[Rfam]
RNA sequence: AUCGUUCAACUUCAUUACGAAGUCGGAAGUAAGCGAAAGCUGAAGGAACGCAAC
Numbered sequence: 001a002u003c004g005u006u007c008a009a010c011u012u013c014a015u016u017a018c019g020a021a022g023u024c025g026g027a028a029g030u031a032a033g034c035g036a037a038a039g040c041u042g043a044a045g046g047a048a049c050g051c052a053a054c
Stems, first nucleotide, its partner, number of pairs: 003050005009023005026051001032041003

The family of this 54-nucleotide sequence is "Glutamine riboswitch aptamer (glnA leader)". A reference for the family is Ames and Breaker (2011), "Bacterial aptamers that selectively bind glutamine", RNA Biol. Rfam's curators put it in the seed alignment.